[Rfam]
Nucleotides: 079
Stems, first nucleotide, its partner, number of pairs: 002078004007073001009070004014066005021059011
Number, partner (000 for none) and nucleotide at each position: 001000u002078c003077u004076g005075g006000u007073g008000u009070u010069g011068a012067u013000u014066g015065u016064c017063c018062a019000a020000a021059c022058g023057c024056a025055a026054u027053u028052c029051u030050u031049g032000u033000a034000u035000c036000a037000u038000u039000u040000g041000u042000c043000u044000g045000u046000a047000c048000c049031u050030a051029g052028g053027a054026g055025u056024u057023g058022u059021g060000c061000a062018u063017g064016g065015a066014c067012a068011u069010c070009a071000u072000a073007c074000c075005c076004c077003a078002g079000u